Small nucleolar SNORD12/SNORD106: a 92-nucleotide RNA from Carlito syrichta. Clan: SNORD12 clan. A reference for the family is Huttenhofer et al. (2001), "RNomics: an experimental approach that identifies 201 candidates for novel, small, non-messenger RNAs in mouse", EMBO J.
[Rfam]
RNA sequence: GCUGGUGUAAAUGAUGACUUCGCUUUUUUCCCCGUCAGAUCGACAAUGUUGAUGUCUUAGAAUAUUUAGCCAGUUUGUGCUGAUACACCAGC
Numbered sequence: 001g002c003u004g005g006u007g008u009a010a011a012u013g014a015u016g017a018c019u020u021c022g023c024u025u026u027u028u029u030c031c032c033c034g035u036c037a038g039a040u041c042g043a044c045a046a047u048g049u050u051g052a053u054g055u056c057u058u059a060g061a062a063u064a065u066u067u068a069g070c071c072a073g074u075u076u077g078u079g080c081u082g083a084u085a086c087a088c089c090a091g092c
Stems, first nucleotide, its partner, number of pairs: 001092009
Gene Ontology terms of the family: RNA processing and nucleolus.